This 127-nucleotide sequence from Treponema vincentii belongs to the Rfam family "TD-1 RNA". Taxonomically the source falls in Treponema vincentii (Bacteria, Spirochaetia, Treponemataceae, Treponema). On this family, see Weinberg et al., Nucleic Acids Res 2007: "Identification of 22 candidate structured RNAs in bacteria using the CMfinder comparative genomics pipeline". The base pairs follow the family's consensus structure, which is taken from published work.
RNA sequence: AUUUUACUAUUGACUUUCGCGCUGCCGCGAAACAUCGCUGAUUGUAAGCCGUUCCGUAUUUCUUUCCGAAACGGCGUAAUGCAACAGUUUCCAAAGUUCACACUUUGUUCAACUGUUGCAUUUUAGG
Numbered sequence: 001a002u003u004u005u006a007c008u009a010u011u012g013a014c015u016u017u018c019g020c021g022c023u024g025c026c027g028c029g030a031a032a033c034a035u036c037g038c039u040g041a042u043u044g045u046a047a048g049c050c051g052u053u054c055c056g057u058a059u060u061u062c063u064u065u066c067c068g069a070a071a072c073g074g075c076g077u078a079a080u081g082c083a084a085c086a087g088u089u090u091c092c093a094a095a096g097u098u099c100a101c102a103c104u105u106u107g108u109u110c111a112a113c114u115g116u117u118g119c120a121u122u123u124u125a126g127g
Stems, first nucleotide, its partner, number of pairs: 012036002015032007048075006055068001079121011092107006